[Rfam]
RNA sequence: ACCCUUGCGAAGCGCCCGGGCCCGGCCUAUAUCUGAUCUGUCCGGAGCGAUCCGGACUAUGGACAUAAACGCGCUCGUAAUAAGCGGAUCGGACCCGGGGGCGGUACCCGGCGGCUCCACCAGAUCACCUUCGUUGGGGGAUAAUGGGGCCGAAACAGGAUCGACGAACGUCUAAAGGGGUUAUGCUUUGUCCCGGUGAGCGACCACCGUUAUCGGUGCAAAUUGUACAGUUGCCAACGACAACCGUGCUCCGGUCGCGCUGGCUGCGUAAGCAGUCCGCAAGAUCGAAACCUAAGCCCUUGCGCCUAGCAGCGUAAGGCGGGGCCCGCAGGAGCCUGGCAACAGAAUCCUGCAUC
Numbered sequence: 001a002c003c004c005u006u007g008c009g010a011a012g013c014g015c016c017c018g019g020g021c022c023c024g025g026c027c028u029a030u031a032u033c034u035g036a037u038c039u040g041u042c043c044g045g046a047g048c049g050a051u052c053c054g055g056a057c058u059a060u061g062g063a064c065a066u067a068a069a070c071g072c073g074c075u076c077g078u079a080a081u082a083a084g085c086g087g088a089u090c091g092g093a094c095c096c097g098g099g100g101g102c103g104g105u106a107c108c109c110g111g112c113g114g115c116u117c118c119a120c121c122a123g124a125u126c127a128c129c130u131u132c133g134u135u136g137g138g139g140g141a142u143a144a145u146g147g148g149g150c151c152g153a154a155a156c157a158g159g160a161u162c163g164a165c166g167a168a169c170g171u172c173u174a175a176a177g178g179g180g181u182u183a184u185g186c187u188u189u190g191u192c193c194c195g196g197u198g199a200g201c202g203a204c205c206a207c208c209g210u211u212a213u214c215g216g217u218g219c220a221a222a223u224u225g226u227a228c229a230g231u232u233g234c235c236a237a238c239g240a241c242a243a244c245c246g247u248g249c250u251c252c253g254g255u256c257g258c259g260c261u262g263g264c265u266g267c268g269u270a271a272g273c274a275g276u277c278c279g280c281a282a283g284a285u286c287g288a289a290a291c292c293u294a295a296g297c298c299c300u301u302g303c304g305c306c307u308a309g310c311a312g313c314g315u316a317a318g319g320c321g322g323g324g325c326c327c328g329c330a331g332g333a334g335c336c337u338g339g340c341a342a343c344a345g346a347a348u349c350c351u352g353c354a355u356c
Base pairs, nucleotide, nucleotide: 040057041056042055043054044053045052046051061193062192063191064190065189071186072185073181074180075179076178085170086169089167090166091165095111096110097109098108099107112152113151114150115149116148117147118146194209195208196207197206200219201218203217204216205215322337323336324335325334328353329352330351331350332349333348
Dot-bracket structure: .......................................(((((((....)))))))...(((((.....((((((........((..(((...(((((.......)))))(((((((...........................)))))))............))).)).......))))...))..)))))((((..[[.[[[)))).....]]]]]......................................................................................................[[[[..((((((]]]]..........))))))...

The record is a 356-nucleotide RNA sequence from Paracoccus aestuarii, which matches "Alphaproteobacteria transfer-messenger RNA" in Rfam. Lineage of the source: Bacteria > Pseudomonadota > Rhodobacterales > Paracoccaceae > Paracoccus.